Shown here is a 71-nucleotide RNA sequence from Capra hircus, a member of the family "Small nucleolar RNA SNORD113/SNORD114 family". The source organism's lineage runs through Eukaryota, Bilateria, Ruminantia, Pecora and Capra. Rfam links the family to the GO terms nucleolus and RNA processing. The family is grouped with related families in Rfam's "SNORD74 clan".
RNA sequence: UGGACCAGUGAUGUUUGUGAUGGGAAGAGCCCUGAACAAUGAAAAACUAUGUUUGAAACUCUGAGGUCCCA
Numbered sequence: 001u002g003g004a005c006c007a008g009u010g011a012u013g014u015u016u017g018u019g020a021u022g023g024g025a026a027g028a029g030c031c032c033u034g035a036a037c038a039a040u041g042a043a044a045a046a047c048u049a050u051g052u053u054u055g056a057a058a059c060u061c062u063g064a065g066g067u068c069c070c071a
Stems, first nucleotide, its partner, number of pairs: 002069005
For this family Rfam cites "Identification of tandemly-repeated C/D snoRNA genes at the imprinted human 14q32 domain reminiscent of those at the Prader-Willi/Angelman syndrome region" (Cavaille et al., Hum Mol Genet, 2002).
About the family: The imprinted human domain at 14q32 contains two clusters of tandemly repeated small nucleolar RNAs named 14q(I) and 14q(II) snoRNAs. These two clusters are named SNORD113 and SNORD114 respectively in the HGNC approved gene symbol nomenclature. The snoRNAs found in both clusters are clearly related and are represented here by a single family. These snoRNAs are intron encoded and are processed from the tissue-specific non-coding human MEG8 RNA, which lies downstream of the imprinted genes DLK1 and GTL2. snoRNAs 14q(I) and 14q(II) differ from previously identified C/D box snoRNAs in their expression profiles and lack of complementarity to rRNA and snRNA. Homologues of these snoRNAs are found in the imprinted non-coding mouse transcript Rian, and in the rat non-coding Bsr (brain-specific repetitive) RNA.
A search with the family's covariance model found it, with a score of 38 bits.